[Rfam]
RNA: Alphaproteobacterial ar15
Organism: Agrobacterium bohemicum
RNA sequence: AGCUGACGCGGGUGCUCCCGCACCGGUCAGCUGUUCCCCUCUGGAGGUCAUGACCUUCAAAACUGUCAGGCCGCGGAGAAAUCCAGCGGCCUUUUUU
Numbered sequence: 001a002g003c004u005g006a007c008g009c010g011g012g013u014g015c016u017c018c019c020g021c022a023c024c025g026g027u028c029a030g031c032u033g034u035u036c037c038c039c040u041c042u043g044g045a046g047g048u049c050a051u052g053a054c055c056u057u058c059a060a061a062a063c064u065g066u067c068a069g070g071c072c073g074c075g076g077a078g079a080a081a082u083c084c085a086g087c088g089g090c091c092u093u094u095u096u097u
Stems, first nucleotide, its partner, number of pairs: 001032005007026001012023004042059007068092006075084003
Dot-bracket structure: (((((.(....((((....))))..).))))).........(((((((....)))))))........((((((.(((....)))..)))))).....